[Rfam]
RNA sequence: AAUGAAAAAGGCAAAUUUAUCGAAAGGUAAAGACGCAAAGCCAUGGGCCUAAACAGUUUUUUUAUACUGCAAUGGCUGCCAGGUUGCCAGGA
Dot-bracket structure: ..((......((...((((((....))))))..[))..((((.((((((........................))).])))))))..))...